[Rfam]
RNA sequence: CGAGCAACUGUAAACAUCCUCGACUGAAAGCUGUGCUCCGCUGCUGUGAAAGGGCUUUCAGUCAGAUGUUUGCGUUUGCCGC
Dot-bracket structure: ...(((..((((((((((....((((((((((....................))))))))))..))))))))))..)))...
Numbered sequence: 001c002g003a004g005c006a007a008c009u010g011u012a013a014a015c016a017u018c019c020u021c022g023a024c025u026g027a028a029a030g031c032u033g034u035g036c037u038c039c040g041c042u043g044c045u046g047u048g049a050a051a052g053g054g055c056u057u058u059c060a061g062u063c064a065g066a067u068g069u070u071u072g073c074g075u076u077u078g079c080c081g082c
Stems, first nucleotide, its partner, number of pairs: 004079003009074010023062010
Rfam assigns this 82-nucleotide RNA sequence from Petromyzon marinus to the family "mir-30 microRNA precursor family". Rfam links the family to the GO terms RISC complex and gene silencing by miRNA. NCBI's taxonomy places the organism under Eukaryota, Bilateria, Deuterostomia, Chordata, Petromyzon. Pairs were carried over by alignment from the consensus structure, which was predicted with PFOLD. It is one of the family's seed sequences.